[Rfam]
RNA: small nucleolar RNA snoR114
RNA sequence: GGGCAGCGACGAAUUCUGCGCUAUUUGACUAUUUGUGAUGGCUGGGUCCAUCACCGUCGUCUGAUAUUUCAGAAGAAUACGUGCAUCUGAGCUU
Numbered sequence: 001g002g003g004c005a006g007c008g009a010c011g012a013a014u015u016c017u018g019c020g021c022u023a024u025u026u027g028a029c030u031a032u033u034u035g036u037g038a039u040g041g042c043u044g045g046g047u048c049c050a051u052c053a054c055c056g057u058c059g060u061c062u063g064a065u066a067u068u069u070c071a072g073a074a075g076a077a078u079a080c081g082u083g084c085a086u087c088u089g090a091g092c093u094u
Stems, first nucleotide, its partner, number of pairs: 001094004